[Rfam]
RNA sequence: UCUCAUGCUGUGACCCUCCAAAGGGAGGUGCUUUCUGUUGUCCAAAAGAAAGAACGCCUUCCCUUUAGAGCGUUACCGUUUGAGA
Numbered sequence: 001u002c003u004c005a006u007g008c009u010g011u012g013a014c015c016c017u018c019c020a021a022a023g024g025g026a027g028g029u030g031c032u033u034u035c036u037g038u039u040g041u042c043c044a045a046a047a048g049a050a051a052g053a054a055c056g057c058c059u060u061c062c063c064u065u066u067a068g069a070g071c072g073u074u075a076c077c078g079u080u081u082g083a084g085a
Stems, first nucleotide, its partner, number of pairs: 001085005007079002010076005016070003020066009030057002033054003038051002
RNA: mir-515 microRNA precursor family